[Rfam]
RNA sequence: UUUCUGUGGUGAUGAAUUAUGAAAUUCUUCACAUGUCAGACUUCAGAGAUUCUUCCACGAAUCUAUGAGAAGAUAAUUCAUUUUCUGAGCAGAAA
Numbered sequence: 001u002u003u004c005u006g007u008g009g010u011g012a013u014g015a016a017u018u019a020u021g022a023a024a025u026u027c028u029u030c031a032c033a034u035g036u037c038a039g040a041c042u043u044c045a046g047a048g049a050u051u052c053u054u055c056c057a058c059g060a061a062u063c064u065a066u067g068a069g070a071a072g073a074u075a076a077u078u079c080a081u082u083u084u085c086u087g088a089g090c091a092g093a094a095a
Base pairs, nucleotide, nucleotide: 001095002094003093004092005091006090007089048063049062050061051060

Record summary: A member of the RNA family "Small nucleolar RNA R64/Z200 family" from Macleaya cordata, 95 nucleotides long. The base pairs follow the family's consensus structure, which was predicted with PFOLD. The source organism's lineage runs through Eukaryota, Streptophyta, Euphyllophyta, Papaveraceae and Macleaya. Rfam links the family to the GO terms RNA processing and nucleolus. A search with the family's covariance model found it, with a score of 88 bits. It is annotated as a C/D-box small nucleolar RNA.